[Rfam]
Nucleotides: 134
Base pairs, nucleotide, nucleotide: 036108037107038106043100044099045098046097047096048095049094050093052091053090059085060084066080068078069077070076
Number, partner (000 for none) and nucleotide at each position: 001000u002000g003000c004000a005000a006000a007000a008000a009000c010000a011000a012000a013000a014000a015000g016000a017000a018000a019000g020000u021000a022000g023000a024000a025000u026000g027000a028000a029000u030000u031000u032000u033000c034000a035000a036108u037107c038106a039000a040000c041000a042000a043100a044099u045098g046097c047096a048095u049094a050093u051000u052091g053090g054000u055000g056000g057000u058000g059085g060084c061000a062000c063000u064000c065000u066080c067000a068078a069077c070076u071000c072000a073000a074000a075000a076070a077069g078068u079000c080066g081000u082000g083000a084060g085059c086000c087000a088000a089000u090053c091052c092000g093050g094049u095048a096047u097046g098045u099044a100043u101000u102000a103000a104000a105000a106038u107037g108036a109000a110000a111000a112000u113000u114000u115000a116000u117000a118000a119000a120000g121000a122000u123000a124000c125000a126000a127000a128000g129000c130000c131000u132000g133000u134000c

The record is a 134-nucleotide RNA sequence from Dysgonomonas gade, which matches "Bacteroidete tryptophan peptide leader RNA" in Rfam. The match comes from Rfam's covariance-model search (53 bits). The source organism's lineage runs through Bacteria, Pseudomonadati, Bacteroidota, Bacteroidia and Dysgonomonas gade.